[Rfam]
RNA sequence: CGUCGUUAUCAAGAGCGGCGCACAUUCGUGUGCCCAGCAACCUGGGGUGGACACCCAAGGUGCUUUCCUACUUUGUAGGGAUAUGGCGACGGCUCUAAGUCGGCGCAACAAAGUGUCCCAUGA
Numbered sequence: 001c002g003u004c005g006u007u008a009u010c011a012a013g014a015g016c017g018g019c020g021c022a023c024a025u026u027c028g029u030g031u032g033c034c035c036a037g038c039a040a041c042c043u044g045g046g047g048u049g050g051a052c053a054c055c056c057a058a059g060g061u062g063c064u065u066u067c068c069u070a071c072u073u074u075g076u077a078g079g080g081a082u083a084u085g086g087c088g089a090c091g092g093c094u095c096u097a098a099g100u101c102g103g104c105g106c107a108a109c110a111a112a113g114u115g116u117c118c119c120a121u122g123a
Stems, first nucleotide, its partner, number of pairs: 007083004015035001017034007036064003041060003044056003049118005086106003
RNA: SAM-I/IV (S-adenosyl methionine) riboswitch aptamer